The record is a 109-nucleotide RNA sequence from Symbiodinium sp. CCMP2592, which matches "U5 spliceosomal RNA" in Rfam.
Lineage of the source: Eukaryota > Sar > Alveolata > Symbiodiniaceae > Symbiodinium.
Nucleotides: 109
Base pairs, nucleotide, nucleotide: 003077004076005075006074008067009066010065011064012063015060016059017058018057027053028052029051030050031049032048033047034046095109096108097107098106099105100104
Number, partner (000 for none) and nucleotide at each position: 001000a002000u003077c004076a005075c006074a007000g008067u009066g010065u011064u012063c013000a014000c015060u016059u017058c018057a019000u020000a021000g022000c023000g024000c025000a026000c027053c028052a029051a030050u031049c032048u033047u034046u035000c036000g037000g038000c039000u040000u041000u042000u043000a044000c045000u046034a047033a048032a049031g050030g051029u052028u053027g054000c055000c056000g057018u058017g059016a060015a061000u062000g063012g064011g065010a066009c067008g068000c069000a070000u071000c072000a073000g074006u075005g076004u077003g078000a079000c080000u081000c082000a083000c084000a085000c086000a087000a088000u089000u090000u091000u092000u093000g094000c095109g096108g097107a098106g099105c100104u101000c102000u103000g104100a105099g106098c107097u108096c109095c